Shown here is a 59-nucleotide RNA from Robertmurraya siralis, a member of the family "Selenocysteine insertion sequence 3". Gene Ontology term of the family: selenocysteine incorporation. Rfam 15.1 lists 640 matches to the family in 593 species. The base pairs follow the family's consensus structure, which was predicted with CMfinder. A reference for the family is Huttenhofer et al. (1996), "Solution structure of mRNA hairpins promoting selenocysteine incorporation in Escherichia coli and their base-specific interaction with special elongation factor SELB", RNA. The match comes from Rfam's covariance-model search (64 bits). Lineage of the source: Bacteria > Bacillati > Bacillota > Bacillaceae > Robertmurraya.

RNA sequence: AUAUGACACGCUCCAACGGUGGCUAGUUUAGCCCCUUCAUUUGGUAGUGGUGCGAUGAC
Number, nucleotide and partner (000 for none) at each position: 001a000002u000003a000004u000005g000006a000007c049008a048009c047010g000011c000012u044013c043014c000015a042016a041017c000018g035019g034020u000021g033022g032023c031024u030025a029026g000027u000028u000029u025030a024031g023032c022033c021034c019035c018036u000037u000038c000039a000040u000041u016042u015043g013044g012045u000046a000047g009048u008049g007050g000051u000052g000053c000054g000055a000056u000057g000058a000059c000